[Rfam]
RNA sequence: UCAUUUCUCUUUACUAAACACGGGAUGAUUCCCGGCCUGUUCACUCAAGGAGCCCAUCAUGGCACUGAGCGUUGAAGAAAAAGCCCAGAUCGUUAACGAGUACAAGCAAGCUGAA
Numbered sequence: 001u002c003a004u005u006u007c008u009c010u011u012u013a014c015u016a017a018a019c020a021c022g023g024g025a026u027g028a029u030u031c032c033c034g035g036c037c038u039g040u041u042c043a044c045u046c047a048a049g050g051a052g053c054c055c056a057u058c059a060u061g062g063c064a065c066u067g068a069g070c071g072u073u074g075a076a077g078a079a080a081a082a083g084c085c086c087a088g089a090u091c092g093u094u095a096a097c098g099a100g101u102a103c104a105a106g107c108a109a110g111c112u113g114a115a
Stems, first nucleotide, its partner, number of pairs: 006025004044069003049066002052063001
This 115-nucleotide RNA sequence from Pseudomonas sp. BAY1663 belongs to the Rfam family "Ribosomal S15 leader". Gene Ontology term of the family: regulation of translation, ncRNA-mediated. The family's RNA type in Rfam is cis-regulatory leader. For this family Rfam cites "Pseudoknot and translational control in the expression of the S15 ribosomal protein" (Benard et al., Biochimie, 1996). The base pairs follow the family's consensus structure, which is taken from published work. Rfam describes the family as follows. The E. coli Ribosomal S15 gene 5' UTR can form two alternative structures. One that is a series of three hairpins, The other includes a pseudoknot. This structure causes translational regulation of the S15 protein. The alignment of this family contains only the final two hairpins which are conserved in other species, and also includes the complete region that forms the alternate structures. The source organism's lineage runs through Bacteria, Pseudomonadati, Pseudomonadota, Pseudomonadaceae and Pseudomonas.